[Rfam]
RNA sequence: UCAUUGGGAAACUAGGGUUCCGGCCUCAAGCGGAAGUUAGCAGUUAGAGGCGACUGGUUCGAGAGUUUCCGGUCUUGUUUUAAUGAUCUCAUUUCAGGUCUUAACGAGGCUCCACGGAGGGAUAAAAGCCCGGGAGAU
Number, nucleotide and partner (000 for none) at each position: 001u000002c000003a000004u000005u000006g000007g070008g069009a068010a067011a066012c065013u000014a000015g060016g059017g000018u000019u000020c057021c056022g054023g051024c050025c049026u048027c047028a000029a000030g000031c000032g000033g000034a000035a000036g000037u000038u000039a000040g000041c000042a000043g000044u000045u000046a000047g027048a026049g025050g024051c023052g000053a000054c022055u000056g021057g020058u000059u016060c015061g000062a000063g000064a000065g012066u011067u010068u009069c008070c007071g111072g110073u109074c108075u107076u106077g105078u104079u000080u000081u000082a000083a000084u000085g000086a000087u000088c000089u000090c000091a000092u000093u000094u000095c000096a000097g000098g000099u000100c000101u000102u000103a000104a078105c077106g076107a075108g074109g073110c072111u071112c000113c133114a000115c136116g000117g000118a000119g131120g130121g129122a000123u000124a000125a000126a000127a000128g000129c121130c120131c119132g000133g113134g000135a000136g115137a000138u000
This 138-nucleotide RNA sequence from Nitrosomonas aestuarii belongs to the Rfam family "Guanidine-I riboswitch aptamer". Rfam describes the family as follows. This family represents a conserved RNA structure found upstream of the ykkC and yxkD genes in Bacillus subtilis and related genes in other bacteria. The pairing is the family consensus, mapped onto this sequence. The source organism's lineage runs through Bacteria, Pseudomonadota, Betaproteobacteria, Nitrosomonadales and Nitrosomonas. It scores 81 bits against the family's covariance model.